[Rfam]
RNA sequence: AUAAUUGGAUGAGGCGCAAAAUUCAUCAGUACUGGCUUUAGAGGGAUCUGUUUAUCCAAAGCUUGGGAAAGGGACUUUUGCCGAAACAGCGUGUUUUUUACAGAAAACAGGUUGUUGGGCUGUAUAUUAAGAAUAUGCAGACUGCCGUAUAGCAUUUCAUGUGCUAAACGGAGGGCUUCCGCUUGU
Numbered sequence: 001a002u003a004a005u006u007g008g009a010u011g012a013g014g015c016g017c018a019a020a021a022u023u024c025a026u027c028a029g030u031a032c033u034g035g036c037u038u039u040a041g042a043g044g045g046a047u048c049u050g051u052u053u054a055u056c057c058a059a060a061g062c063u064u065g066g067g068a069a070a071g072g073g074a075c076u077u078u079u080g081c082c083g084a085a086a087c088a089g090c091g092u093g094u095u096u097u098u099u100a101c102a103g104a105a106a107a108c109a110g111g112u113u114g115u116u117g118g119g120c121u122g123u124a125u126a127u128u129a130a131g132a133a134u135a136u137g138c139a140g141a142c143u144g145c146c147g148u149a150u151a152g153c154a155u156u157u158c159a160u161g162u163g164c165u166a167a168a169c170g171g172a173g174g175g176c177u178u179c180c181g182c183u184u185g186u
Stems, first nucleotide, its partner, number of pairs: 006181004011176001016081006023074002032066004037061001038059001085116006092109005117143002120140008145171004150166004
Annotation
The family of this 186-nucleotide RNA sequence from Alkalibacterium kapii is "Lysine riboswitch aptamer". Lineage of the source: Bacteria > Bacillati > Bacilli > Lactobacillales > Alkalibacterium. It scores 96 bits against the family's covariance model.